Rfam assigns this 94-nucleotide sequence from Denticeps clupeoides to the family "mir-1388 microRNA precursor family". NCBI's taxonomy places the organism under Eukaryota, Opisthokonta, Bilateria, Clupeiformes, Denticeps. For this family Rfam cites "Parallel DNA pyrosequencing unveils new zebrafish microRNAs" (Soares et al., BMC Genomics, 2009). Pairs were carried over by alignment from the consensus structure, which was predicted with RNAalifold.
[Rfam]
RNA sequence: UUCUGAGUGAUGCUUUCGAGGACUGUCCAACCUGAGAAUGGUGAAACCUCCGGCUCAAUCUCAGGUUCGUCAGCCCAUGAAACGUCUCUUCCAC
Numbered sequence: 001u002u003c004u005g006a007g008u009g010a011u012g013c014u015u016u017c018g019a020g021g022a023c024u025g026u027c028c029a030a031c032c033u034g035a036g037a038a039u040g041g042u043g044a045a046a047c048c049u050c051c052g053g054c055u056c057a058a059u060c061u062c063a064g065g066u067u068c069g070u071c072a073g074c075c076c077a078u079g080a081a082a083c084g085u086c087u088c089u090u091c092c093a094c
Stems, first nucleotide, its partner, number of pairs: 005091003009086004014082004020076002023073003027069001029067009039057002
Dot-bracket structure: ....(((.((((.((((..((.(((.(.(((((((((.((...............)).))))))))).).))).))..))))))))..)))...